The family of this 94-nucleotide RNA sequence from Promicromonospora sukumoe is "TPP riboswitch aptamer (THI element)". The source organism's lineage runs through Bacteria, Actinomycetota, Micrococcales, Promicromonosporaceae and Promicromonospora.
[Rfam]
RNA sequence: GCACGUGACACGGGGUGCCCCGACCGGGGCUGAGACCACACCCGUCGAACCUGAUCCAGAUCAUGCUGGCGAAGGGAUGUCCAUCGUGACUUCU
Dot-bracket structure: ......((((((((.((((((....))))).......)..)))).....(((...((((......))))...)))..)))).............